[Rfam]
RNA sequence: UUUUCGCCUGUACGUGAGAGGAUGAGAAUCUCCGAAGGAGGUUUGAGCCGAACGUAGUGAGACCACGUUGCUUUAGCAACGGCCCGCAGGGCAAGCAUCGAAGAUGCGCAUAAUCCUCUCAUGCCGACCA
Numbered sequence: 001u002u003u004u005c006g007c008c009u010g011u012a013c014g015u016g017a018g019a020g021g022a023u024g025a026g027a028a029u030c031u032c033c034g035a036a037g038g039a040g041g042u043u044u045g046a047g048c049c050g051a052a053c054g055u056a057g058u059g060a061g062a063c064c065a066c067g068u069u070g071c072u073u074u075a076g077c078a079a080c081g082g083c084c085c086g087c088a089g090g091g092c093a094a095g096c097a098u099c100g101a102a103g104a105u106g107c108g109c110a111u112a113a114u115c116c117u118c119u120c121a122u123g124c125c126g127a128c129c130a
Stems, first nucleotide, its partner, number of pairs: 015121007023113001034092001042088001044086002049059002066081006

This 130-nucleotide RNA belongs to the Rfam family "RtT RNA". Its family is annotated with cellular response to amino acid starvation in the Gene Ontology. Rfam 15.1 lists 651 matches to the family in 204 species. The family's RNA type in Rfam is cis-regulatory element. This family represents a bacterial cis-regulatory element known as RtT RNA. The exact function of RtT is unknown although it is thought that it may be involved in changing the cellular response in relation to amino acid starvation. The literature on the family includes a 1991 paper in Nucleic Acids Res by Bosl and Kersten, "A novel RNA product of the tyrT operon of Escherichia coli". The family's consensus secondary structure is taken from published work. The match comes from Rfam's covariance-model search (86 bits).